[Rfam]
RNA sequence: AGUGAAGUCGCUGGAGGCAGCGGUUCAUCGAUCAAUUCCUGUGAAUAUUUAUUUUUGUUUACAAAAGCAAGAAUCGAUCGAUAAACCUCUGCAUCCAGCGCUGCUUGC
Numbered sequence: 001a002g003u004g005a006a007g008u009c010g011c012u013g014g015a016g017g018c019a020g021c022g023g024u025u026c027a028u029c030g031a032u033c034a035a036u037u038c039c040u041g042u043g044a045a046u047a048u049u050u051a052u053u054u055u056u057g058u059u060u061a062c063a064a065a066a067g068c069a070a071g072a073a074u075c076g077a078u079c080g081a082u083a084a085a086c087c088u089c090u091g092c093a094u095c096c097a098g099c100g101c102u103g104c105u106u107g108c
Stems, first nucleotide, its partner, number of pairs: 013096003018091003022087004027082007036073003